[Rfam]
RNA: Acido-Lenti-1 RNA
Organism: Planctomyces sp. SCGC AG-212-M04
RNA sequence: CCGGGGGCUCGCGCCCCCGGCCAAGUUGUGCCGCUCCUUCGGAGCU
Numbered sequence: 001c002c003g004g005g006g007g008c009u010c011g012c013g014c015c016c017c018c019g020g021c022c023a024a025g026u027u028g029u030g031c032c033g034c035u036c037c038u039u040c041g042g043a044g045c046u
Stems, first nucleotide, its partner, number of pairs: 001020008033045005